The record is an 85-nucleotide sequence from Lactobacillus corticis, which matches "SAM-III riboswitch aptamer (SMK box)" in Rfam.
The organism belongs to Lactobacillus, within Bacteria.
RNA sequence: GAUCGGUUCAAGUCCUGAAAGGAUUCACCCUCGUGGUGAAGAUGCCUUGUAACCGAAUAGCUAAGUCUAUAUAGGGGGACAUAUG
Numbered sequence: 001g002a003u004c005g006g007u008u009c010a011a012g013u014c015c016u017g018a019a020a021g022g023a024u025u026c027a028c029c030c031u032c033g034u035g036g037u038g039a040a041g042a043u044g045c046c047u048u049g050u051a052a053c054c055g056a057a058u059a060g061c062u063a064a065g066u067c068u069a070u071a072u073a074g075g076g077g078g079a080c081a082u083a084u085g
Stems, first nucleotide, its partner, number of pairs: 012080005019048004024040005053075002